RNA sequence: CCUUGAGAAACGCAAACCAAGCGAAAGCUUGGGACGCAAAGUCCGGAGUCUACAGUGCAUCUUCCCGCACAAUGACCGUCCGACCGCCACG
Number, nucleotide and partner (000 for none) at each position: 001c000002c000003u000004u000005g000006a000007g000008a000009a000010a000011c000012g037013c036014a000015a000016a000017c032018c031019a030020a029021g028022c027023g000024a000025a000026a000027g022028c021029u020030u019031g018032g017033g000034a000035c000036g013037c012038a000039a000040a000041g084042u083043c082044c000045g081046g080047a079048g076049u075050c074051u000052a000053c000054a000055g070056u069057g068058c067059a000060u000061c000062u000063u000064c000065c000066c000067g058068c057069a056070c055071a000072a000073u000074g050075a049076c048077c000078g000079u047080c046081c045082g043083a042084c041085c000086g000087c000088c000089a000090c000091g000
RNA: c-di-GMP-I riboswitch aptamer